[Rfam]
RNA sequence: GGUUUUAACCCAGUUACUCAAGGUACGCUGGAGUUCUGACCUUACGAAAGAGAGUGUCAAACAACUUUAAUUUUUGGAAAAGCUCCGCUGGGGUUAUCCGGCGAACGAAA
Numbered sequence: 001g002g003u004u005u006u007a008a009c010c011c012a013g014u015u016a017c018u019c020a021a022g023g024u025a026c027g028c029u030g031g032a033g034u035u036c037u038g039a040c041c042u043u044a045c046g047a048a049a050g051a052g053a054g055u056g057u058c059a060a061a062c063a064a065c066u067u068u069a070a071u072u073u074u075u076g077g078a079a080a081a082g083c084u085c086c087g088c089u090g091g092g093g094u095u096a097u098c099c100g101g102c103g104a105a106c107g108a109a110a
Stems, first nucleotide, its partner, number of pairs: 007035002009031002013028002015025003037059004041054003045050001084108002089103002092099002